[Rfam]
RNA sequence: AGCAGCACGGGAGAGCGACCCGUUAGCUGGCAGACAAUCCAGUCCUCAUCCCACGGCAUCUGGGACGAGGGCUGGCUUUCUGCGCUUAAUCCCGUCUUCCAAUAACGGGAAAGUUUCAGUGCAUCGCACCGAAGUGCAUAACGCUUCACCAAGCUUUUGGAACGGCAACCGCAUCGCUCGGGGAGAACGCUGUUCUCCUCGCGGUUCCGUCGCCCCA
Numbered sequence: 001a002g003c004a005g006c007a008c009g010g011g012a013g014a015g016c017g018a019c020c021c022g023u024u025a026g027c028u029g030g031c032a033g034a035c036a037a038u039c040c041a042g043u044c045c046u047c048a049u050c051c052c053a054c055g056g057c058a059u060c061u062g063g064g065a066c067g068a069g070g071g072c073u074g075g076c077u078u079u080c081u082g083c084g085c086u087u088a089a090u091c092c093c094g095u096c097u098u099c100c101a102a103u104a105a106c107g108g109g110a111a112a113g114u115u116u117c118a119g120u121g122c123a124u125c126g127c128a129c130c131g132a133a134g135u136g137c138a139u140a141a142c143g144c145u146u147c148a149c150c151a152a153g154c155u156u157u158u159g160g161a162a163c164g165g166c167a168a169c170c171g172c173a174u175c176g177c178u179c180g181g182g183g184a185g186a187a188c189g190c191u192g193u194u195c196u197c198c199u200c201g202c203g204g205u206u207c208c209g210u211c212g213c214c215c216c217a
Stems, first nucleotide, its partner, number of pairs: 003029004007023005030083005036077001041073007049065003162210004168205005180200008
Description
A member of the RNA family "Cyano-2 RNA", 217 nucleotides long. Pairs were carried over by alignment from the consensus structure, which is taken from published work.